RNA: mir-156 microRNA precursor family
Organism: Gossypium raimondii
RNA sequence: GUGACAGAAGAGAGUGAGCACCCAGGGUGUUCUCUUGCAUGCUUGGGCUUUCAUGCUUGAAGCUUUGAGUGCUCACUCUCUAUCUGUCAU
Numbered sequence: 001g002u003g004a005c006a007g008a009a010g011a012g013a014g015u016g017a018g019c020a021c022c023c024a025g026g027g028u029g030u031u032c033u034c035u036u037g038c039a040u041g042c043u044u045g046g047g048c049u050u051u052c053a054u055g056c057u058u059g060a061a062g063c064u065u066u067g068a069g070u071g072c073u074c075a076c077u078c079u080c081u082a083u084c085u086g087u088c089a090u
Stems, first nucleotide, its partner, number of pairs: 001090008010080012023067003
Dot-bracket structure: ((((((((.((((((((((((.(((.......................................))).))))))))))))..))))))))